[Rfam]
RNA: Small Cajal body-specific RNA 7
RNA sequence: UGGAAAUGAUGAAAUAGAGAGAAAUGGGUGUUGAGUGUUGUAUGAUUGAAGUUUUUUAAUUAGUGUUUUAAGUAAUUAGUCUAAAUUUAAUAUUUUCUGUAAUAGUGUAUGCGUGUAUUUGUGUGUGUGCUUGAAGGCUAUGGAAAGGGGGCACUGACUGGUGGUGCUGAGAUUGGAGUGCAUCUGAGGCUGUUGUAGCAAUACAAGGGUGCUGAUUACAACAUUGCCAAUGAUUAUAACCCAAAAAGAGCUCACCUGCCUAGCCAAGCACCCUAACAUCUCUAACAGGUUCAUUAAACCUGGACCUGUGAUCUGAUCCAA
Numbered sequence: 001u002g003g004a005a006a007u008g009a010u011g012a013a014a015u016a017g018a019g020a021g022a023a024a025u026g027g028g029u030g031u032u033g034a035g036u037g038u039u040g041u042a043u044g045a046u047u048g049a050a051g052u053u054u055u056u057u058a059a060u061u062a063g064u065g066u067u068u069u070a071a072g073u074a075a076u077u078a079g080u081c082u083a084a085a086u087u088u089a090a091u092a093u094u095u096u097c098u099g100u101a102a103u104a105g106u107g108u109a110u111g112c113g114u115g116u117a118u119u120u121g122u123g124u125g126u127g128u129g130c131u132u133g134a135a136g137g138c139u140a141u142g143g144a145a146a147g148g149g150g151g152c153a154c155u156g157a158c159u160g161g162u163g164g165u166g167c168u169g170a171g172a173u174u175g176g177a178g179u180g181c182a183u184c185u186g187a188g189g190c191u192g193u194u195g196u197a198g199c200a201a202u203a204c205a206a207g208g209g210u211g212c213u214g215a216u217u218a219c220a221a222c223a224u225u226g227c228c229a230a231u232g233a234u235u236a237u238a239a240c241c242c243a244a245a246a247a248g249a250g251c252u253c254a255c256c257u258g259c260c261u262a263g264c265c266a267a268g269c270a271c272c273c274u275a276a277c278a279u280c281u282c283u284a285a286c287a288g289g290u291u292c293a294u295u296a297a298a299c300c301u302g303g304a305c306c307u308g309u310g311a312u313c314u315g316a317u318c319c320a321a
Stems, first nucleotide, its partner, number of pairs: 001320004191223008200213001202211003